Annotation:
The family of this 288-nucleotide RNA from Mortierella sp. NVP85 is "Nuclear RNase P". The base pairs follow the family's consensus structure, which is taken from published work. A search with the family's covariance model found it, with a score of 47 bits. The family's RNA type in Rfam is ribozyme.

RNA sequence: GGUGGCUGAAUAGCGUUUGCUUGGAAACAUACGGCUGGACAACUCGCGUUGAUCCAGCAAGUGACAUUGCAAGCGGGUAAAGUCCGCGUACGUGCGCUGUUUCCCAAGUGGGGACGCUGGUUAGUCGCUGGCGGGAAGGCUACCAGAAAAUGUCCUGAAGGGGGGUCGCCCUCUCGGCAGGUUGGAAGGUCUCUGGCACACAGCUUCUGAAAGUCCAAUACGCUGUAGGCUGCUUGCUCCUCCUUGGGGGAGCGAGGGCUGCAACUCAAUGCGGAUUAUUGGCCUACC
Number, nucleotide and partner (000 for none) at each position: 001g287002g000003u000004g284005g283006c282007u000008g000009a000010a000011u000012a000013g000014c000015g000016u000017u000018u000019g074020c073021u072022u071023g070024g000025a000026a000027a000028c000029a000030u000031a000032c000033g000034g058035c057036u056037g055038g054039a053040c000041a000042a000043c000044u000045c000046g000047c000048g000049u000050u000051g000052a000053u039054c038055c037056a036057g035058c034059a000060a000061g000062u000063g000064a000065c000066a000067u000068u000069g000070c023071a022072a021073g020074c019075g000076g000077g000078u000079a000080a000081a000082g000083u000084c274085c273086g272087c271088g270089u000090a000091c000092g199093u198094g197095c196096g000097c000098u000099g000100u000101u114102u113103c112104c111105c110106a000107a000108g000109u000110g105111g104112g103113g102114a101115c000116g000117c131118u130119g129120g128121u127122u000123a000124g000125u000126c000127g121128c120129u119130g118131g117132c000133g000134g000135g194136a000137a192138g191139g190140c189141u188142a000143c000144c000145a000146g000147a000148a000149a000150a000151u000152g000153u000154c181155c180156u179157g000158a000159a000160g000161g000162g000163g000164g000165g000166u000167c000168g000169c000170c000171c000172u000173c000174u000175c000176g000177g000178c000179a156180g155181g154182u000183u000184g000185g000186a000187a000188g141189g140190u139191c138192u137193c000194u135195g000196g095197c094198a093199c092200a000201c000202a000203g000204c000205u000206u000207c000208u000209g000210a000211a000212a000213g000214u000215c000216c000217a000218a000219u000220a000221c000222g000223c000224u000225g000226u000227a000228g000229g262230c261231u000232g259233c258234u257235u256236g000237c000238u000239c000240c000241u000242c000243c000244u000245u000246g000247g000248g000249g000250g000251a000252g000253c000254g000255a000256g235257g234258g233259c232260u000261g230262c229263a000264a000265c000266u000267c000268a000269a000270u088271g087272c086273g085274g084275a000276u000277u000278a000279u000280u000281g000282g006283c005284c004285u000286a000287c001288c000